[Rfam]
RNA sequence: UCAAAUGCAAUGAUAAAGAAGAGUAGAUUAUAUUUGUGCUUAAGCGAGUCUCGAUUUGGUGUGAGGAGAUAGUGCAAAUAUUGUUGAAAAUCACUUUUGAGCACAUGUUGACUGAAGACAUGCUGGGUACACCCAUUAUAGUGGAAGCGUAUCGCAAUAUUAUUUGCUGUACGUGAUAAAAGGUUUUACAUAGAUGUGUGUAGACAAAUCUAGGGUGGUACCGUGCUUUAAUUUGCGCCCCUUAA
Numbered sequence: 001u002c003a004a005a006u007g008c009a010a011u012g013a014u015a016a017a018g019a020a021g022a023g024u025a026g027a028u029u030a031u032a033u034u035u036g037u038g039c040u041u042a043a044g045c046g047a048g049u050c051u052c053g054a055u056u057u058g059g060u061g062u063g064a065g066g067a068g069a070u071a072g073u074g075c076a077a078a079u080a081u082u083g084u085u086g087a088a089a090a091u092c093a094c095u096u097u098u099g100a101g102c103a104c105a106u107g108u109u110g111a112c113u114g115a116a117g118a119c120a121u122g123c124u125g126g127g128u129a130c131a132c133c134c135a136u137u138a139u140a141g142u143g144g145a146a147g148c149g150u151a152u153c154g155c156a157a158u159a160u161u162a163u164u165u166g167c168u169g170u171a172c173g174u175g176a177u178a179a180a181a182g183g184u185u186u187u188a189c190a191u192a193g194a195u196g197u198g199u200g201u202a203g204a205c206a207a208a209u210c211u212a213g214g215g216u217g218g219u220a221c222c223g224u225g226c227u228u229u230a231a232u233u234u235g236c237g238c239c240c241c242u243u244a245a
Stems, first nucleotide, its partner, number of pairs: 007102002015097004026085003030081002037074003048070005104122006124135003185204006212242004223238004